[Rfam]
RNA sequence: CUAAUGUUUCUUGCUUAAAUGAGUAUUCCAUGGAAGUAAAUUUCACUAACAUAAGUGUGUGAUUUCUUUCUCUUUCCAUGAGAUGCUCAUUUGCGCAAGCAAUGUUUG
Numbered sequence: 001c002u003a004a005u006g007u008u009u010c011u012u013g014c015u016u017a018a019a020u021g022a023g024u025a026u027u028c029c030a031u032g033g034a035a036g037u038a039a040a041u042u043u044c045a046c047u048a049a050c051a052u053a054a055g056u057g058u059g060u061g062a063u064u065u066c067u068u069u070c071u072c073u074u075u076c077c078a079u080g081a082g083a084u085g086c087u088c089a090u091u092u093g094c095g096c097a098a099g100c101a102a103u104g105u106u107u108g
Stems, first nucleotide, its partner, number of pairs: 004105005010099005016093012029080002
A member of the RNA family "MIR828 microRNA precursor family" from Arabis nemorensis, 108 nucleotides long. For this family Rfam cites "Arabidopsis lyrata small RNAs: transient MIRNA and small interfering RNA loci within the Arabidopsis genus" (Ma et al., Plant Cell, 2010). The base pairs follow the family's consensus structure, which was predicted with RNAalifold. A search with the family's covariance model found it, with a score of 80 bits. NCBI's taxonomy places the organism under Eukaryota, Tracheophyta, Pentapetalae, malvids, Arabis.